[Rfam]
Rfam assigns this 56-nucleotide RNA to the family "nadA riboswitch". Rfam classes the family as a small RNA.
RNA sequence: GGCUUCAACACCCCCGCGGGCGGGACCUUUUCAAGGUAUGUGCGUUCGCUGGAGCC
Numbered sequence: 001g002g003c004u005u006c007a008a009c010a011c012c013c014c015c016g017c018g019g020g021c022g023g024g025a026c027c028u029u030u031u032c033a034a035g036g037u038a039u040g041u042g043c044g045u046u047c048g049c050u051g052g053a054g055c056c
Base pairs, nucleotide, nucleotide: 001056002055003054004053005052006051007050013042014040016049017048018047019046020045021044022043023041025037026036027035028034029033